Description: Shown here is a 62-nucleotide sequence from Rhodoblastus sp., a member of the family "terC RNA". The family has 129 seed sequences and 1,112 matches in Rfam 15.1. Pairs were carried over by alignment from the consensus structure, which is taken from published work. The family's RNA type in Rfam is cis-regulatory element. It scores 55 bits against the family's covariance model.
RNA sequence: CCCGCGGUCCGGGCCCCUCUGGCGACAGCCCGUCGGCGGCGUCGUGAUGUCGGACCACCCGC
Numbered sequence: 001c002c003c004g005c006g007g008u009c010c011g012g013g014c015c016c017c018u019c020u021g022g023c024g025a026c027a028g029c030c031c032g033u034c035g036g037c038g039g040c041g042u043c044g045u046g047a048u049g050u051c052g053g054a055c056c057a058c059c060c061g062c
Stems, first nucleotide, its partner, number of pairs: 006056007022045005028040003